Description: The family of this 383-nucleotide sequence from Kazachstania africana is "Small nucleolar RNA snR37". The organism belongs to Kazachstania africana, within Eukaryota. The literature on the family includes a 2004 paper in Nucleic Acids Res by Schattner et al., "Genome-wide searching for pseudouridylation guide snoRNAs: analysis of the Saccharomyces cerevisiae genome". It scores 265 bits against the family's covariance model. By type it is an H/ACA-box small nucleolar RNA.
RNA sequence: AUCAUCAGUAGUGGUUAAUACUAUCUCAAGAUAAUAUUAAUUACCAAAUUAUAGAAACCUAAAGGUUCGAUUAUUUGUGUUUUUCAUGUUGUGAAGUUGGAGAAUGGUAUGAAGCUUGCUUCGUAUUGUUCACUUUCAUUGCAAUAAGUUAAUACUGAAACACUAAAUUUUUGAAACCAAUAUCAUAACCCAUAGCUGAGUAGAUUCUGACUAGCUCCAAACAAGCUGGGCACAGAAUUCACUUCGUUUCCGGUUUCUUAGAUUAACUUUAUAUAAUGAGGAAGGUUUUCCCAGGAAAAUAAGUUGCAUGUUUGCCAGAGGAUAGUAUAAUGCUAUCUGAGAGUUUGGAUUCUAUGGUGCCUCUUCUUCAUGAUAAGACUAUU
Numbered sequence: 001a002u003c004a005u006c007a008g009u010a011g012u013g014g015u016u017a018a019u020a021c022u023a024u025c026u027c028a029a030g031a032u033a034a035u036a037u038u039a040a041u042u043a044c045c046a047a048a049u050u051a052u053a054g055a056a057a058c059c060u061a062a063a064g065g066u067u068c069g070a071u072u073a074u075u076u077g078u079g080u081u082u083u084u085c086a087u088g089u090u091g092u093g094a095a096g097u098u099g100g101a102g103a104a105u106g107g108u109a110u111g112a113a114g115c116u117u118g119c120u121u122c123g124u125a126u127u128g129u130u131c132a133c134u135u136u137c138a139u140u141g142c143a144a145u146a147a148g149u150u151a152a153u154a155c156u157g158a159a160a161c162a163c164u165a166a167a168u169u170u171u172u173g174a175a176a177c178c179a180a181u182a183u184c185a186u187a188a189c190c191c192a193u194a195g196c197u198g199a200g201u202a203g204a205u206u207c208u209g210a211c212u213a214g215c216u217c218c219a220a221a222c223a224a225g226c227u228g229g230g231c232a233c234a235g236a237a238u239u240c241a242c243u244u245c246g247u248u249u250c251c252g253g254u255u256u257c258u259u260a261g262a263u264u265a266a267c268u269u270u271a272u273a274u275a276a277u278g279a280g281g282a283a284g285g286u287u288u289u290c291c292c293a294g295g296a297a298a299a300u301a302a303g304u305u306g307c308a309u310g311u312u313u314g315c316c317a318g319a320g321g322a323u324a325g326u327a328u329a330a331u332g333c334u335a336u337c338u339g340a341g342a343g344u345u346u347g348g349a350u351u352c353u354a355u356g357g358u359g360c361c362u363c364u365u366c367u368u369c370a371u372g373a374u375a376a377g378a379c380u381a382u383u
Stems, first nucleotide, its partner, number of pairs: 009046001011044010022033004053258007064178004068173003073168004077163007087146007096137001099134002102131004109124006147156003198244004203239002207235003211229005270376001272375003277370008285300006302362002307359003313349001315348005320338007